[Rfam]
Nucleotides: 175
Stems, first nucleotide, its partner, number of pairs: 007169005016083004021078004032068002035065005087118012119145002122142004127137003147160005
Number, partner (000 for none) and nucleotide at each position: 001000g002000a003000g004000a005000a006000u007169g008168a009167u010166a011165g012000a013000g014000g015000u016083g017082c018081g019080g020000g021078c022077u023076u024075u025000a026000u027000c028000a029000g030000u031000a032068c033067c034000a035065g036064g037063c038062g039061g040000g041000c042000u043000a044000u045000g046000g047000a048000a049000c050000a051000g052000g053000a054000c055000a056000g057000c058000c059000g060000u061039c062038c063037g064036c065035c066000a067033g068032g069000g070000a071000a072000a073000g074000g075024a076023a077022a078021g079000g080019c081018c082017g083016c084000c085000g086000a087118a088117g089116a090115a091114g092113g093112g094111g095110u096109u097108c098107c099000c100000g101000g102000u103000c104000c105000g106000g107098g108097g109096a110095a111094u112093u113092u114091u115090u116089u117088c118087u119145g120144g121000g122142g123141c124140a125139c126000a127137g128136c129135a130000g131000a132000a133000u134000a135129u136128g137127c138000g139125g140124u141123g142122c143000a144120c145119u146000g147160u148159c149158a150157c151156a152000a153000g154000g155000a156151u157150g158149u159148g160147g161000a162000g163000c164000g165011c166010u167009a168008u169007c170000u171000u172000g173000g174000a175000u
A member of the RNA family "Lysine riboswitch aptamer" from Lachnospiraceae bacterium 3_1_57FAA_CT1, 175 nucleotides long. Its family is annotated with lysine biosynthetic process in the Gene Ontology. For this family Rfam cites "Riboswitches Control Fundamental Biochemical Pathways in Bacillus subtilis and Other Bacteria" (Mandal et al., Cell, 2003).